[Rfam]
RNA sequence: AAGAUUAUACUUUCAGGGAUCAUUUCUAUAGCUUGUUACCUUGAAGGAGCAGAAUCCUUUCCUAUAACACUUUUAGGGACUGGCCUUUGUGUUGUCUGAGAAUUUCUUGGGUCUGGCAACAGGCUGGUCAAUAUUUACUGAAGACAAACUCUGCAACUGUGCUCAGCCUUGUGGAGGAAACAAUGUGGGUCUCUGAGAAAU
Number, nucleotide and partner (000 for none) at each position: 001a041002a000003g039004a000005u000006u035007a034008u000009a000010c031011u030012u000013u000014c000015a027016g026017g025018g024019a000020u000021c000022a000023u000024u018025u017026c016027u015028a000029u000030a011031g010032c000033u000034u007035g006036u000037u000038a000039c003040c000041u001042u000043g000044a000045a000046g059047g058048a000049g000050c000051a055052g000053a000054a000055u051056c000057c000058u047059u046060u000061c000062c000063u000064a000065u000066a000067a000068c000069a000070c000071u200072u199073u198074u197075a000076g000077g000078g000079a000080c000081u000082g000083g000084c000085c000086u189087u188088u187089g186090u185091g184092u183093u182094g181095u180096c000097u178098g000099a000100g136101a135102a134103u133104u000105u000106c000107u131108u130109g129110g128111g000112u000113c127114u126115g125116g124117c123118a000119a000120c000121a000122g000123g117124c116125u115126g114127g113128u110129c109130a108131a107132u000133a103134u102135u101136u100137a000138c000139u000140g000141a000142a000143g000144a000145c000146a000147a000148a000149c000150u175151c174152u173153g172154c171155a170156a169157c000158u000159g000160u000161g000162c000163u000164c000165a000166g000167c000168c000169u156170u155171g154172u153173g152174g151175a150176g000177g000178a097179a000180a095181c094182a093183a092184u091185g090186u089187g088188g087189g086190u000191c000192u000193c000194u000195g000196a000197g074198a073199a072200a071201u000
RNA: Small nucleolar RNA U3
Organism: Mesocricetus auratus